Acido-Lenti-1 RNA: a 46-nucleotide RNA sequence from Novipirellula maiorica. It is annotated as a small RNA. A search with the family's covariance model found it, with a score of 42 bits. Rfam 15.1 lists 2,607 matches to the family in 171 species.
[Rfam]
RNA sequence: CCACGGACUUGCGUCCGUGGCUGCAUCAUGCCAUUGCUUCGCAAUU
Numbered sequence: 001c002c003a004c005g006g007a008c009u010u011g012c013g014u015c016c017g018u019g020g021c022u023g024c025a026u027c028a029u030g031c032c033a034u035u036g037c038u039u040c041g042c043a044a045u046u
Stems, first nucleotide, its partner, number of pairs: 001020008033045005